[Rfam]
RNA sequence: GGAAAUUUGAGAGGAUCUGCUCCUAGUACGAGAGGACCAGAGUGGACGAACCUCUGGUGUUUCGGUUGUCACGCCAGUGGCAUUGCCGAGUAGCUAUGUUCGGAUGGGAUAACCGCUGAAAGCAUCUAAGCGGGAAGCCCACCUCAAGAUGAGAUUUCCCUAAAGAGCCGUUGUAGACGACGACGUUGAUAGGUUGGGUGUGGAAGUGUAGUGAUACAUGUAGCUAACCAAUACUAAUUGCUCGUUUG
Number, nucleotide and partner (000 for none) at each position: 001g159002g158003a157004a156005a155006u154007u153008u152009g000010a000011g145012a144013g143014g142015a000016u000017c045018u044019g043020c042021u041022c040023c000024u000025a000026g000027u000028a000029c000030g000031a000032g000033a000034g000035g000036a000037c000038c000039a000040g022041a021042g020043u019044g018045g017046a000047c102048g101049a100050a099051c098052c000053u000054c000055u096056g095057g094058u000059g000060u000061u000062u089063c088064g087065g086066u085067u082068g081069u080070c079071a078072c077073g000074c000075c000076a000077g072078u071079g070080g069081c068082a067083u000084u000085g066086c065087c064088g063089a062090g000091u000092a000093g000094c057095u056096a055097u000098g051099u050100u049101c048102g047103g000104a000105u000106g140107g139108g138109a000110u000111a000112a000113c133114c132115g131116c130117u129118g000119a000120a000121a000122g000123c000124a000125u000126c000127u000128a000129a117130g116131c115132g114133g113134g000135a000136a000137g000138c108139c107140c106141a000142c014143c013144u012145c011146a000147a000148g000149a000150u000151g000152a008153g007154a006155u005156u004157u003158c002159c001160c000161u000162a245163a000164a000165g243166a242167g241168c240169c185170g184171u183172u182173g181174u000175a000176g000177a000178c000179g000180a000181c173182g172183a171184c170185g169186u000187u000188g000189a000190u236191a235192g234193g232194u231195u230196g229197g228198g000199u000200g224201u000202g000203g000204a000205a000206g219207u218208g217209u216210a215211g000212u000213g000214a000215u210216a209217c208218a207219u206220g000221u000222a000223g000224c200225u000226a000227a000228c197229c196230a195231a194232u193233a000234c192235u191236a190237a000238u000239u000240g168241c167242u166243c165244g000245u162246u000247u000248g000
RNA: Bacterial large subunit ribosomal RNA, nucleotides 2905 to 3152